[Rfam]
RNA sequence: GGAUAUAAACGCGCUCGUAAUAACCGGAUCGGACCAGGGGGCGGUACCCUGCGUCUCCACCAAUCACUCCUGUAUCAACUCUCAUUUGGGGUAUGAUUUAGGGCACAUGGGGACGAAAUAGGAUCGACGAACGUCUAAAGGGGUUUUGCUUUAUCCCGGUGAGUUACCACCGUUAUCGGUACGACAAAGCUAGUUGCAAAUGACAACAAAGCACCGAUGGCUCUCGCAGCGUAA
Numbered sequence: 001g002g003a004u005a006u007a008a009a010c011g012c013g014c015u016c017g018u019a020a021u022a023a024c025c026g027g028a029u030c031g032g033a034c035c036a037g038g039g040g041g042c043g044g045u046a047c048c049c050u051g052c053g054u055c056u057c058c059a060c061c062a063a064u065c066a067c068u069c070c071u072g073u074a075u076c077a078a079c080u081c082u083c084a085u086u087u088g089g090g091g092u093a094u095g096a097u098u099u100a101g102g103g104c105a106c107a108u109g110g111g112g113a114c115g116a117a118a119u120a121g122g123a124u125c126g127a128c129g130a131a132c133g134u135c136u137a138a139a140g141g142g143g144u145u146u147u148g149c150u151u152u153a154u155c156c157c158g159g160u161g162a163g164u165u166a167c168c169a170c171c172g173u174u175a176u177c178g179g180u181a182c183g184a185c186a187a188a189g190c191u192a193g194u195u196g197c198a199a200a201u202g203a204c205a206a207c208a209a210a211g212c213a214c215c216g217a218u219g220g221c222u223c224u225c226g227c228a229g230c231g232u233a234a
Stems, first nucleotide, its partner, number of pairs: 001156005013144004025133002029130003035051005052115007157172004

A member of the RNA family "permuted transfer-messenger RNA" from Yoonia tamlensis, 234 nucleotides long. The literature on the family includes a 1996 paper in RNA by Williams and Bartel, "Phylogenetic analysis of tmRNA secondary structure". Rfam's curators write: Bacterial tmRNA, also known as 10Sa RNA or SsrA, is named for its dual tRNA and mRNA-like properties. Its role is to liberate the mRNA from a stalled ribosome. The source organism's lineage runs through Bacteria, Alphaproteobacteria, Rhodobacterales, Paracoccaceae and Yoonia.